[Rfam]
RNA sequence: AUAUAAGUAAAAAUCUAUUUUUUUAGAUACAUUCAAUUAAUGAUGUAUGUAGUCUUUAUUAUAUGUCACAUGCAUCAUUAAUUGAAUGUAUCUAAAAAAUGGAUUUUUGUUUAUAU
Numbered sequence: 001a002u003a004u005a006a007g008u009a010a011a012a013a014u015c016u017a018u019u020u021u022u023u024u025a026g027a028u029a030c031a032u033u034c035a036a037u038u039a040a041u042g043a044u045g046u047a048u049g050u051a052g053u054c055u056u057u058a059u060u061a062u063a064u065g066u067c068a069c070a071u072g073c074a075u076c077a078u079u080a081a082u083u084g085a086a087u088g089u090a091u092c093u094a095a096a097a098a099a100u101g102g103a104u105u106u107u108u109g110u111u112u113a114u115a116u
Stems, first nucleotide, its partner, number of pairs: 002115006009108005015102003019099008028090018050068001052066002
Dot-bracket structure: .((((((.(((((.(((.((((((((.((((((((((((((((((....(.((...........)).)....)))))))))))))))))).))))))))))).))))).)))))).
Shown here is a 116-nucleotide RNA sequence from Medicago truncatula, a member of the family "MIR2593 microRNA precursor family". Gene Ontology terms of the family: RISC complex and miRNA-mediated post-transcriptional gene silencing. It scores 98 bits against the family's covariance model.